[Rfam]
RNA sequence: AAAAAUAAGAAAGAAGCUGUCCGCUUAUUAGCUCCAUGGAGCUAAUAAGCGGACAGCUUCUUUCUUAUUUUU
Numbered sequence: 001a002a003a004a005a006u007a008a009g010a011a012a013g014a015a016g017c018u019g020u021c022c023g024c025u026u027a028u029u030a031g032c033u034c035c036a037u038g039g040a041g042c043u044a045a046u047a048a049g050c051g052g053a054c055a056g057c058u059u060c061u062u063u064c065u066u067a068u069u070u071u072u
Stems, first nucleotide, its partner, number of pairs: 003070005009064003013060002017056005024049006

mir-965 microRNA precursor family: a 72-nucleotide RNA sequence from Octopus sinensis.
The family's consensus secondary structure was predicted with RNAalifold.
NCBI's taxonomy places the organism under Eukaryota, Protostomia, Octopoda, Incirrata, Octopus.
Rfam links the family to the GO terms miRNA-mediated post-transcriptional gene silencing and RISC complex.
The family has 16 seed sequences and 224 matches in Rfam 15.1.